[Rfam]
RNA: MIR1120/MIR1122 microRNA precursor family
RNA sequence: CUACUCCCUCCGUCCCAUAAUAUAAGAGCGUUUUUGACACUAUACUAGUGUCAAAAACAUUCUUAUAUUAUGGGACAGAGGGAGUAG
Numbered sequence: 001c002u003a004c005u006c007c008c009u010c011c012g013u014c015c016c017a018u019a020a021u022a023u024a025a026g027a028g029c030g031u032u033u034u035u036g037a038c039a040c041u042a043u044a045c046u047a048g049u050g051u052c053a054a055a056a057a058c059a060u061u062c063u064u065a066u067a068u069u070a071u072g073g074g075a076c077a078g079a080g081g082g083a084g085u086a087g
Base pairs, nucleotide, nucleotide: 003085004084005083007081008080009079010078013075014074015073016072017071019069020068021067022066023065024064025063026062027061028060030058031057032056033055034054035053036052037051038050039049040048041047